Eukaryotic large subunit ribosomal RNA: a 417-nucleotide part of an RNA from uncultured marine alveolate. Its Rfam clan is "LSU clan". Rfam's curators put it in the seed alignment.

RNA sequence: GCUCACGACCAGUCACGGGAUUACCCGCUGAAUUUAAGCAUAUAAAUAAGCGGAGGACAUCAAACUAACCAGGAUUCCCCUAGUAAUGGCGAAUGAACAGGGAAGAGCUCAAAUCUAUAACCGUGUUCACGGAUACGGAAUGUGGCCUCGUGUGCGUUCACCAGCUGCUCCUACGUCGUUAGUUGUUUGGAACAACACAUAAUCACGGGUGAAAAUCCCAUCUGUCGACCUUAUGGAGGCGCGUACGGUGUGCGUUCCCCGAGUCGCGCACCCUGGGACGGGUGCGUAAAUUCGGUGGUAAGUUUCAUCGAAAGCUCAAUAUUUCCUCGAGUCCGAUAGCGAACAAGUACCAUGAGGGAAAGGUGAAAAGUACUUUGAAAAGAGAGUUAAACGUGCCUGAAAUCGUUGUGAAUCAAG
Numbered sequence: 001g002c003u004c005a006c007g008a009c010c011a012g013u014c015a016c017g018g019g020a021u022u023a024c025c026c027g028c029u030g031a032a033u034u035u036a037a038g039c040a041u042a043u044a045a046a047u048a049a050g051c052g053g054a055g056g057a058c059a060u061c062a063a064a065c066u067a068a069c070c071a072g073g074a075u076u077c078c079c080c081u082a083g084u085a086a087u088g089g090c091g092a093a094u095g096a097a098c099a100g101g102g103a104a105g106a107g108c109u110c111a112a113a114u115c116u117a118u119a120a121c122c123g124u125g126u127u128c129a130c131g132g133a134u135a136c137g138g139a140a141u142g143u144g145g146c147c148u149c150g151u152g153u154g155c156g157u158u159c160a161c162c163a164g165c166u167g168c169u170c171c172u173a174c175g176u177c178g179u180u181a182g183u184u185g186u187u188u189g190g191a192a193c194a195a196c197a198c199a200u201a202a203u204c205a206c207g208g209g210u211g212a213a214a215a216u217c218c219c220a221u222c223u224g225u226c227g228a229c230c231u232u233a234u235g236g237a238g239g240c241g242c243g244u245a246c247g248g249u250g251u252g253c254g255u256u257c258c259c260c261g262a263g264u265c266g267c268g269c270a271c272c273c274u275g276g277g278a279c280g281g282g283u284g285c286g287u288a289a290a291u292u293c294g295g296u297g298g299u300a301a302g303u304u305u306c307a308u309c310g311a312a313a314g315c316u317c318a319a320u321a322u323u324u325c326c327u328c329g330a331g332u333c334c335g336a337u338a339g340c341g342a343a344c345a346a347g348u349a350c351c352a353u354g355a356g357g358g359a360a361a362g363g364u365g366a367a368a369a370g371u372a373c374u375u376u377g378a379a380a381a382g383a384g385a386g387u388u389a390a391a392c393g394u395g396c397c398u399g400a401a402a403u404c405g406u407u408g409u410g411a412a413u414c415a416a417g
Base pairs, nucleotide, nucleotide: 024055025053026052027051028050029049035042036041065072066071076103077102078101079100086094087093106316107315108314109313114145115144121138122137123136124135125134126133127132152257155254156253157252159250160249161248162247164242165241168238169236170235173231175229176228177227178226182198184197185196186195187194208218209217266287267286268285269284270283271282272281293310294309295308296307297306350357351356373384374383375382376381